[Rfam]
RNA sequence: CUUACAGAGGUUAUUGGCAUUCUGUCCACCUUCAACUUUCCCUCUUUUAUUUAAUUACAUUUAUUGAAGGGAGAAAUGAAGAGUUUUUUUUAAAGAAAAACGGAGGAUGAAUCGAAGGUGGUCAUCCUGCCAACUGAGCUCUGUAAG
Numbered sequence: 001c002u003u004a005c006a007g008a009g010g011u012u013a014u015u016g017g018c019a020u021u022c023u024g025u026c027c028a029c030c031u032u033c034a035a036c037u038u039u040c041c042c043u044c045u046u047u048u049a050u051u052u053a054a055u056u057a058c059a060u061u062u063a064u065u066g067a068a069g070g071g072a073g074a075a076a077u078g079a080a081g082a083g084u085u086u087u088u089u090u091u092a093a094a095g096a097a098a099a100a101c102g103g104a105g106g107a108u109g110a111a112u113c114g115a116a117g118g119u120g121g122u123c124a125u126c127c128u129g130c131c132a133a134c135u136g137a138g139c140u141c142u143g144u145a146a147g
Base pairs, nucleotide, nucleotide: 011137014133015132016131017130018129019128023124024123026121027120028119029118030117031116032115033114
The family of this 147-nucleotide RNA from Zingiber officinale is "MIR394 microRNA precursor family". Lineage of the source: Eukaryota > Euphyllophyta > Spermatophyta > commelinids > Zingiber. Its family is annotated with miRNA-mediated post-transcriptional gene silencing and RISC complex in the Gene Ontology. Pairs were carried over by alignment from the consensus structure, which was predicted with WAR. A reference for the family is Jones-Rhoades and Bartel (2004), "Computational identification of plant microRNAs and their targets, including a stress-induced miRNA", Mol Cell.